[Rfam]
RNA sequence: GGAUGUGAGGGCGAUCUGGCUGCAACAUCUGUCGCCCCAUUGAUUGCCAGGGUUGAUUCGGCUAAUCUCGCUGGCUAGGCGGGUGUCCCCUUCCUCCCUCACCGCUCCAUGUGCGUCCCUCCCGAAGCUGCGCGCUCGGUCGAAGAGGAUGACCACCCCCGAUAGAGGAGGACCGUUUCCUCGGUCAAGGGUAUAGAGUAGCUGCGCUCCCCUGCUAGAACCUCCAAACAAGCUCUCAAAUUUAUUAGUAUUGAGUUGAUUGUAAUAUUCUCUUCUAAUUAUUUCACUUUUUUUCUAUAGUUUUAAUCUUGUU
Number, nucleotide and partner (000 for none) at each position: 001g108002g107003a106004u000005g102006u101007g100008a099009g098010g097011g096012c000013g093014a092015u000016c000017u000018g090019g089020c000021u000022g000023c000024a000025a086026c085027a084028u083029c082030u081031g080032u079033c078034g000035c074036c073037c070038c000039a068040u000041u000042g067043a066044u065045u064046g062047c061048c060049a000050g000051g000052g000053u000054u000055g000056a000057u000058u000059c000060g048061g047062c046063u000064a045065a044066u043067c042068u039069c000070g037071c000072u000073g036074g035075c000076u000077a000078g033079g032080c031081g030082g029083g028084u027085g026086u025087c000088c000089c019090c018091u000092u014093c013094c000095u000096c011097c010098c009099u008100c007101a006102c005103c000104g000105c000106u003107c002108c001109a000110u000111g000112u000113g000114c000115g000116u171117c170118c168119c167120u166121c165122c139123c138124g137125a136126a000127g135128c134129u000130g000131c000132g000133c000134g128135c127136u125137c124138g123139g122140u162141c161142g160143a000144a000145g000146a000147g158148g157149a000150u000151g000152a000153c000154c000155a000156c000157c148158c147159c000160c142161g141162a140163u000164a000165g121166a120167g119168g118169a000170g117171g116172a000173c000174c000175g000176u000177u000178u000179c000180c000181u000182c000183g000184g000185u000186c000187a000188a000189g000190g000191g000192u000193a000194u000195a000196g000197a000198g000199u000200a000201g269202c000203u267204g000205c000206g000207c000208u262209c000210c000211c000212c258213u000214g256215c255216u000217a000218g000219a000220a000221c000222c000223u250224c000225c248226a000227a000228a246229c000230a000231a000232g000233c000234u000235c000236u000237c000238a000239a000240a000241u000242u000243u000244a000245u000246u228247a000248g225249u000250a223251u000252u000253g000254a000255g215256u214257u000258g212259a000260u000261u000262g208263u000264a000265a000266u000267a203268u000269u201270c000271u000272c000273u000274u000275c000276u000277a000278a000279u000280u000281a000282u000283u000284u000285c000286a000287c000288u000289u000290u000291u000292u000293u000294u000295c000296u000297a000298u000299a000300g000301u000302u000303u000304u000305a313306a312307u000308c000309u000310u000311g000312u306313u305
Rfam assigns this 313-nucleotide RNA sequence from Fukomys damarensis to the family "7SK RNA". The family's RNA type in Rfam is non-coding RNA gene. The base pairs follow the family's consensus structure, which is taken from published work. Clan: 7SK clan.